The family of this 102-nucleotide RNA sequence from Salimicrobium jeotgali is "Purine riboswitch aptamer".
It scores 74 bits against the family's covariance model.
The organism belongs to Salimicrobium, within Bacteria.
Rfam links the family to the GO term purine nucleobase biosynthetic process.
Pairs were carried over by alignment from the consensus structure, which is taken from published work.
[Rfam]
RNA sequence: AAAAAGUGAAUAAGCAACUAACGUAUAAUCUUGGGGAUAAGGCCCAUAAGUUUCUACCGGACGACCGUGAAUUGUCCGACUACGUUCUGAACACCGGGGGAU
Dot-bracket structure: ...................((((((...(..((((.......))))..)........(((((((.......)))))))..))))))................
Numbered sequence: 001a002a003a004a005a006g007u008g009a010a011u012a013a014g015c016a017a018c019u020a021a022c023g024u025a026u027a028a029u030c031u032u033g034g035g036g037a038u039a040a041g042g043c044c045c046a047u048a049a050g051u052u053u054c055u056a057c058c059g060g061a062c063g064a065c066c067g068u069g070a071a072u073u074g075u076c077c078g079a080c081u082a083c084g085u086u087c088u089g090a091a092c093a094c095c096g097g098g099g100g101a102u
Stems, first nucleotide, its partner, number of pairs: 020086006029049001032046004058078007